RNA sequence: GGAUCCAUAGCUUAAUAGUAAAGUCCUAUUUUGUCAUAAUAGAGGAUGUCAGUGCAAAUCUGAUUGGAUUCG
Number, nucleotide and partner (000 for none) at each position: 001g071002g070003a069004u068005c067006c066007a065008u000009a000010g024011c023012u022013u021014a000015a000016u000017a000018g000019u000020a000021a013022a012023g011024u010025c000026c042027u041028a040029u039030u038031u000032u000033g000034u000035c000036a000037u000038a030039a029040u028041a027042g026043a000044g000045g000046a000047u000048g064049u063050c062051a061052g060053u000054g000055c000056a000057a000058a000059u000060c052061u051062g050063a049064u048065u007066g006067g005068a004069u003070u002071c001072g000
Annotation: This 72-nucleotide RNA sequence from Nakaseomyces glabratus belongs to the Rfam family "tRNA". NCBI's taxonomy places the organism under Eukaryota, Fungi, Dikarya, Saccharomycotina, Nakaseomyces. The sequence is in the family's curated seed alignment.